[Rfam]
RNA sequence: GUAGGUUACGGUGAUGUGACACCUAAAGGAAUCCUGGGGAAACUUGUAGGUUCCGUAUGCGUUGUGUCAGGAGUUAUUACUAUUGCCCUUCUUGUACCUGUAGUUGUGUCAAAC
Numbered sequence: 001g002u003a004g005g006u007u008a009c010g011g012u013g014a015u016g017u018g019a020c021a022c023c024u025a026a027a028g029g030a031a032u033c034c035u036g037g038g039g040a041a042a043c044u045u046g047u048a049g050g051u052u053c054c055g056u057a058u059g060c061g062u063u064g065u066g067u068c069a070g071g072a073g074u075u076a077u078u079a080c081u082a083u084u085g086c087c088c089u090u091c092u093u094g095u096a097c098c099u100g101u102a103g104u105u106g107u108g109u110c111a112a113a114c
Stems, first nucleotide, its partner, number of pairs: 001114002005110001007108005014101003018097001021095002037077001039075002049063003

Potassium channel RNA editing signal: a 114-nucleotide RNA sequence from Bugula neritina. The family has 85 seed sequences and 14,095 matches in Rfam 15.1. By type it is a cis-regulatory element. Lineage of the source: Eukaryota > Eumetazoa > Protostomia > Flustrina > Bugula.